epsC RNA: a 109-nucleotide sequence from Halalkalibacter hemicellulosilyticus. It scores 98 bits against the family's covariance model. The family has 30 seed sequences and 450 matches in Rfam 15.1. The source organism's lineage runs through Bacteria, Bacillati, Bacillota, Caryophanales and Halalkalibacter hemicellulosilyticus. By type it is a cis-regulatory element.
RNA sequence: AGGUGAUAUCUCCUAACCUCUAUCAAUUGGAGAUACUCGACCAUGCUGUGGGUGAAAACCUUAGAUGCUUGUCAUCAGUGGUGUGGUGUGAGGGAGGGUUCAAUGCCCA
Numbered sequence: 001a002g003g004u005g006a007u008a009u010c011u012c013c014u015a016a017c018c019u020c021u022a023u024c025a026a027u028u029g030g031a032g033a034u035a036c037u038c039g040a041c042c043a044u045g046c047u048g049u050g051g052g053u054g055a056a057a058a059c060c061u062u063a064g065a066u067g068c069u070u071g072u073c074a075u076c077a078g079u080g081g082u083g084u085g086g087u088g089u090g091a092g093g094g095a096g097g098g099u100u101c102a103a104u105g106c107c108c109a
Base pairs, nucleotide, nucleotide: 001019002018003017004016007035008034009033010032011031012030013029036092037091038090039089040087041086042085043084044083045082046081047080050061051060052059053058064076065075066074067073096108097107098106099105